[Rfam]
The record is a 75-nucleotide RNA sequence from Streptomyces sp. DvalAA-14, which matches "ASpks TB sRNA" in Rfam. Pairs were carried over by alignment from the consensus structure, which is taken from published work. A reference for the family is Arnvig and Young (2009), "Identification of small RNAs in Mycobacterium tuberculosis", Mol Microbiol. It is annotated as an antisense RNA.

RNA sequence: CUUCACCGAGCCCAGCCACAGCGGCCUUCCGCCGGCCCGUUCCCGGCCGUAGGUGGCCAGCAGCGCCUGCGCCUC
Numbered sequence: 001c002u003u004c005a006c007c008g009a010g011c012c013c014a015g016c017c018a019c020a021g022c023g024g025c026c027u028u029c030c031g032c033c034g035g036c037c038c039g040u041u042c043c044c045g046g047c048c049g050u051a052g053g054u055g056g057c058c059a060g061c062a063g064c065g066c067c068u069g070c071g072c073c074u075c
Stems, first nucleotide, its partner, number of pairs: 015025003033069001038065002043060001045058001047056003